UnaL2 LINE 3' element: a 55-nucleotide RNA sequence from Coregonus sp. 'balchen'. Lineage of the source: Eukaryota > Bilateria > Craniata > Teleostei > Coregonus. The family's RNA type in Rfam is cis-regulatory element.
RNA sequence: UGUAAACACAACUUGUAAGUCGCUCUGGAUAAGAGCGUCUGCUAAAUGACUUAAA
Numbered sequence: 001u002g003u004a005a006a007c008a009c010a011a012c013u014u015g016u017a018a019g020u021c022g023c024u025c026u027g028g029a030u031a032a033g034a035g036c037g038u039c040u041g042c043u044a045a046a047u048g049a050c051u052u053a054a055a
Base pairs, nucleotide, nucleotide: 013044015042016041017040021037022036023035024034025033026032
About the family: The eel long interspersed element (LINE) UnaL2 and its partner short interspersed element (SINE) share a conserved 3' tail containing a stem-loop that is critical for their retrotransposition. Presumably, the first step of retrotransposition is the recognition of their 3' tails by UnaL2-encoded reverse transcriptase. The solution structure of a 17-nucleotide RNA derived from the 3' tail of UnaL2 was determined by NMR.